[Rfam]
RNA sequence: GGACGCCGCGGUGCCUGACCGCCGCGUCACCAUUCUCCUCUUGUCGUUGUUGCUCCGGGGCGCUGCCCCGGUUUUUUUUU
Numbered sequence: 001g002g003a004c005g006c007c008g009c010g011g012u013g014c015c016u017g018a019c020c021g022c023c024g025c026g027u028c029a030c031c032a033u034u035c036u037c038c039u040c041u042u043g044u045c046g047u048u049g050u051u052g053c054u055c056c057g058g059g060g061c062g063c064u065g066c067c068c069c070g071g072u073u074u075u076u077u078u079u080u
Stems, first nucleotide, its partner, number of pairs: 001030001003027004008022005055071007
Dot-bracket structure: (.((((.(((((.....))))).))))..)........................(((((((...))))))).........